[Rfam]
RNA: Purine riboswitch aptamer
Organism: Filibacter tadaridae
RNA sequence: CGAUUAAUUGAAUAGAACCGUCGUAUAUGUCCAGGAAUAUGGCUUGGAUGUCUCUACCGGAACACCUUAAAUGUUCUGACUACGAUUUAGAUAGAAGGGAGA
Numbered sequence: 001c002g003a004u005u006a007a008u009u010g011a012a013u014a015g016a017a018c019c020g021u022c023g024u025a026u027a028u029g030u031c032c033a034g035g036a037a038u039a040u041g042g043c044u045u046g047g048a049u050g051u052c053u054c055u056a057c058c059g060g061a062a063c064a065c066c067u068u069a070a071a072u073g074u075u076c077u078g079a080c081u082a083c084g085a086u087u088u089a090g091a092u093a094g095a096a097g098g099g100a101g102a
Base pairs, nucleotide, nucleotide: 020086021085022084023083024082025081029049030048031047032046033045034044035043058078059077060076061075062074063073064072